The family of this 226-nucleotide RNA from Streptomyces fumanus is "Streptomyces sRNA 4677". The source organism's lineage runs through Bacteria, Bacillati, Actinomycetota, Actinomycetes and Streptomyces. Pairs were carried over by alignment from the consensus structure. Located in the intergenic region between anti-sigma factor SCO4677 gene and a putative regulatory protein gene SCO4676. scr4677 expression requires the SCO4677 activity and scr4677 sRNA itself seem to affect the levels of the SCO4676-associated transcripts.

RNA sequence: GGGCCCGGCGAGCCGCUGACCUCCUGAAAGAAUCGGGGAAAGAACUACCCGCCCACCCACCCUCCCGGCGCCGGAGGGCGGGCGUCACCCGUGCGAGUGACCGGCUUGCAGGCGCGGGACACAGACCGUUACGUUCGCCGCGACAACCUCACACAGACGACGGCCCCCGGCCGGGACGGCAAUCCCGAUCGAGGGCCUGACCGAUCAGGAAGCUCCAACCUUCCCA
Number, nucleotide and partner (000 for none) at each position: 001g202002g000003g000004c000005c000006c000007g072008g071009c070010g069011a000012g000013c000014c000015g000016c000017u000018g000019a000020c000021c000022u000023c000024c000025u000026g000027a000028a000029a000030g000031a000032a000033u000034c000035g000036g000037g000038g000039a000040a000041a000042g000043a000044a000045c000046u000047a000048c000049c000050c000051g000052c000053c000054c000055a000056c000057c000058c000059a000060c000061c000062c000063u000064c000065c000066c000067g000068g000069c010070g009071c008072c007073g000074g000075a000076g000077g000078g000079c000080g000081g000082g000083c000084g000085u100086c099087a098088c097089c000090c095091g000092u000093g000094c000095g090096a000097g088098u087099g086100a085101c000102c000103g000104g000105c000106u000107u000108g000109c000110a000111g139112g138113c137114g136115c000116g000117g000118g000119a000120c000121a000122c000123a000124g000125a000126c000127c000128g000129u000130u000131a000132c000133g000134u000135u000136c114137g113138c112139c111140g000141c000142g000143a000144c000145a000146a000147c000148c000149u000150c000151a000152c000153a000154c000155a000156g000157a000158c000159g000160a000161c000162g197163g196164c195165c194166c193167c000168c191169g190170g000171c000172c000173g186174g185175g184176a183177c000178g000179g000180c000181a000182a000183u176184c175185c174186c173187g000188a000189u000190c169191g168192a000193g166194g165195g164196c163197c162198u000199g000200a000201c000202c001203g000204a000205u000206c000207a000208g224209g223210a222211a221212g220213c000214u000215c000216c000217a000218a000219c000220c212221u211222u210223c209224c208225c000226a000